The family of this 192-nucleotide RNA sequence from Jeotgalibaca sp. PTS2502 is "6S / SsrS RNA". Rfam's curators write: E. coli 6S RNA was the first non coding RNA to be sequenced, but its function was unknown until recently. It consists of 184 nucleotides that fold into an extended hairpin structure with a large single-stranded internal bulge. The 6S RNA specifically associates with RNA polymerase holoenzyme containing the sigma70 specificity factor. This interaction represses expression from a sigma70-dependent promoter during stationary phase. 6S RNA homologs have recently been identified in most bacterial genomes. Many Gram-positive species have two copies of 6S RNA. In Bacillus subtilis, both copies appear to interact with RNA polymerase holoenzyme containing the housekeeping sigma factor and be expressed during different stages of growth. In many proteobacteria, 6S RNA may be processed from a transcript encoding homologs of the E. coli YgfA protein which is a putative 5-formyltetrahydrofolate cycloligase activity. The base pairs follow the family's consensus structure, which is taken from published work. The source organism's lineage runs through Bacteria, Bacillati, Lactobacillales, Carnobacteriaceae and Jeotgalibaca. Rfam classes the family as a non-coding RNA gene.
RNA sequence: GAAGUUCUGAGGUGUACGAUAUAUUCUCAAUGUGUUGACCGAACAAAUAAUUACUAUAUUGGGAUCCUUGAUUUAUGUUGGAUAGCAAGCCAUGUCAUGUGGAAGCUAGCAAGACAUUCUGUGGAGCCCACCUGCUAAUACUGCGGGUUCAAAACUAGUAGAAUAACAUAAACCGGCACCAUCGGAUUUUCU
Numbered sequence: 001g002a003a004g005u006u007c008u009g010a011g012g013u014g015u016a017c018g019a020u021a022u023a024u025u026c027u028c029a030a031u032g033u034g035u036u037g038a039c040c041g042a043a044c045a046a047a048u049a050a051u052u053a054c055u056a057u058a059u060u061g062g063g064a065u066c067c068u069u070g071a072u073u074u075a076u077g078u079u080g081g082a083u084a085g086c087a088a089g090c091c092a093u094g095u096c097a098u099g100u101g102g103a104a105g106c107u108a109g110c111a112a113g114a115c116a117u118u119c120u121g122u123g124g125a126g127c128c129c130a131c132c133u134g135c136u137a138a139u140a141c142u143g144c145g146g147g148u149u150c151a152a153a154a155c156u157a158g159u160a161g162a163a164u165a166a167c168a169u170a171a172a173c174c175g176g177c178a179c180c181a182u183c184g185g186a187u188u189u190u191c192u
Stems, first nucleotide, its partner, number of pairs: 002190003006186005012179004017175002032155002035152004039147002061129003065125003069121002075117005085106002090102004